[Rfam]
RNA sequence: CUCUAGGAUUUAUUCAUUGCAUAGGCUGUGUAUAUUUUUAUUCGAUACCCAGAUCAUGUAGUGUGAACAUUACAGAG
Numbered sequence: 001c002u003c004u005a006g007g008a009u010u011u012a013u014u015c016a017u018u019g020c021a022u023a024g025g026c027u028g029u030g031u032a033u034a035u036u037u038u039u040a041u042u043c044g045a046u047a048c049c050c051a052g053a054u055c056a057u058g059u060a061g062u063g064u065g066a067a068c069a070u071u072a073c074a075g076a077g
Stems, first nucleotide, its partner, number of pairs: 001077004008070002011067001013065001015063008026052003030048004
Rfam assigns this 77-nucleotide sequence from Fukomys damarensis to the family "mir-1912 microRNA precursor family".
NCBI's taxonomy places the organism under Eukaryota, Metazoa, Dipnotetrapodomorpha, Tetrapoda, Fukomys.
The literature on the family includes a 2010 paper in Genes Dev by Chiang et al., "Mammalian microRNAs: experimental evaluation of novel and previously annotated genes".
Rfam links the family to the GO terms miRNA-mediated post-transcriptional gene silencing and RISC complex.